Rfam assigns this 68-nucleotide RNA sequence from Actinoallomurus iriomotensis to the family "ASdes TB sRNA". The family has 26 seed sequences and 1,192 matches in Rfam 15.1. A search with the family's covariance model found it, with a score of 68 bits. The family's RNA type in Rfam is small RNA.
RNA sequence: AGGGCGAUCGGGUCCACGACGCGGGUGACGGUGAGGUAGUCGCGGAUGACGAUGCCGUGACGGUUCUC
Number, nucleotide and partner (000 for none) at each position: 001a000002g000003g000004g000005c062006g061007a000008u059009c000010g000011g000012g029013u028014c000015c027016a026017c025018g000019a000020c000021g000022c000023g000024g000025g017026u016027g015028a013029c012030g000031g000032u000033g000034a000035g056036g055037u054038a053039g000040u052041c051042g050043c000044g000045g000046a000047u000048g000049a000050c042051g041052a040053u038054g037055c036056c035057g000058u000059g008060a000061c006062g005063g000064u000065u000066c000067u000068c000